[Rfam]
RNA sequence: ACAAAGCCCGCUUUGCAGUCAUGCAAAGCGGGCUUUCAAAUCUCCGCGCCGGUCGCACAGCCCCGGCGGCUCACCUCGCUUUAGCUGAUUCGGGGCCGAGGCCCCCGCGUCCGCAAGCUGAUUCAAAUCGACGCGUGAGCCAGAUGGUAGCACGGCGCGCGCGAGGCGCGC
Numbered sequence: 001a002c003a004a005a006g007c008c009c010g011c012u013u014u015g016c017a018g019u020c021a022u023g024c025a026a027a028g029c030g031g032g033c034u035u036u037c038a039a040a041u042c043u044c045c046g047c048g049c050c051g052g053u054c055g056c057a058c059a060g061c062c063c064c065g066g067c068g069g070c071u072c073a074c075c076u077c078g079c080u081u082u083a084g085c086u087g088a089u090u091c092g093g094g095g096c097c098g099a100g101g102c103c104c105c106c107g108c109g110u111c112c113g114c115a116a117g118c119u120g121a122u123u124c125a126a127a128u129c130g131a132c133g134c135g136u137g138a139g140c141c142a143g144a145u146g147g148u149a150g151c152a153c154g155g156c157g158c159g160c161g162c163g164a165g166g167c168g169c170g171c
Base pairs, nucleotide, nucleotide: 004035005034006033007032008031009030010029011028012027015024016023017022047135048134049133051132059080060079061078065076066075081121082120083119084118085117086116092106093105094104107114108113151170153168154167156165
RNA: Burkholderia sRNA Bp2_Cand287_SIPHT